Xanthomonadaceae sRNA Xoo5: a 124-nucleotide RNA from Stenotrophomonas sp. BIIR7. By type it is a small RNA. Taxonomically the source falls in Stenotrophomonas (Bacteria, Gammaproteobacteria, Lysobacterales, Lysobacteraceae). A search with the family's covariance model found it, with a score of 115 bits.
RNA sequence: CCAUGAAACUCACCGACUUCCAGCACGACACCAGCGCCGCCCGUAUGGCUACGGGCAUGACGUCGCGUGCCCGCCGACCGGAACCCCACAUUUUCGCUGGGUAACCGGAGCUUCGUGCUGUCUG
Number, nucleotide and partner (000 for none) at each position: 001c000002c000003a000004u000005g000006a000007a000008a000009c000010u000011c000012a000013c000014c000015g000016a000017c000018u000019u000020c000021c000022a000023g000024c000025a000026c000027g000028a000029c000030a000031c000032c120033a119034g118035c117036g116037c000038c000039g111040c110041c108042c107043g079044u000045a000046u076047g075048g074049c073050u000051a000052c000053g000054g071055g070056c069057a068058u067059g066060a000061c000062g000063u000064c000065g000066c059067g058068u057069g056070c055071c054072c000073g049074c048075c047076g046077a000078c000079c043080g106081g105082a000083a000084c000085c101086c100087c099088a098089c096090a000091u000092u000093u000094u000095c000096g089097c000098u088099g087100g086101g085102u000103a000104a000105c081106c080107g042108g041109a000110g040111c039112u000113u000114c000115g000116u036117g035118c034119u033120g032121u000122c000123u000124g000